[Rfam]
Plant signal recognition particle RNA: a 280-nucleotide sequence from Brassica rapa. The organism belongs to Brassica, within Eukaryota.
RNA sequence: GUCAAGCUAAGUAACGAGAGUUUAUGACCGAGUGGAACACUGGUUCGAUCCACGGGUCGGAUCUGUGUGGCAUGUUUCUGGGCUGUCCAUUCUUAGCUGAGAAUUAUUUGUCUGGUUUGAGCGAAGGCUCGAAUCAGGUGGGUGUUAAAGUGGAAGGGUAAUGUGUCAGGCUGUUUCACAGAGCAGCGACUACUUCUUGCUCUCUGCAGUGGACAGAUAACGGCUCGGCGCCACUCAAACUCGCCAAUAUGGCCUGCUGGUUCGUUUUCAGUUGAACCAC
Numbered sequence: 001g002u003c004a005a006g007c008u009a010a011g012u013a014a015c016g017a018g019a020g021u022u023u024a025u026g027a028c029c030g031a032g033u034g035g036a037a038c039a040c041u042g043g044u045u046c047g048a049u050c051c052a053c054g055g056g057u058c059g060g061a062u063c064u065g066u067g068u069g070g071c072a073u074g075u076u077u078c079u080g081g082g083c084u085g086u087c088c089a090u091u092c093u094u095a096g097c098u099g100a101g102a103a104u105u106a107u108u109u110g111u112c113u114g115g116u117u118u119g120a121g122c123g124a125a126g127g128c129u130c131g132a133a134u135c136a137g138g139u140g141g142g143u144g145u146u147a148a149a150g151u152g153g154a155a156g157g158g159u160a161a162u163g164u165g166u167c168a169g170g171c172u173g174u175u176u177c178a179c180a181g182a183g184c185a186g187c188g189a190c191u192a193c194u195u196c197u198u199g200c201u202c203u204c205u206g207c208a209g210u211g212g213a214c215a216g217a218u219a220a221c222g223g224c225u226c227g228g229c230g231c232c233a234c235u236c237a238a239a240c241u242c243g244c245c246a247a248u249a250u251g252g253c254c255u256g257c258u259g260g261u262u263c264g265u266u267u268u269c270a271g272u273u274g275a276a277c278c279a280c
Base pairs, nucleotide, nucleotide: 001028002027003026004023005022006021007020008019032280033279034278035277038274039273040271041270042269043267046264047263048262049260050259053256054255055254056253057252058251059245060244062239064237065236068233069232070231078228079227080226081225082224083223084222085221086220087216091213092212093211096207097206099204100203101202102201104199105144106143107142108141109140110139111138112137113136114135115134116133117132118131119130120129121128122127145150152197153196154195155194156193164188165187166186171181172180173179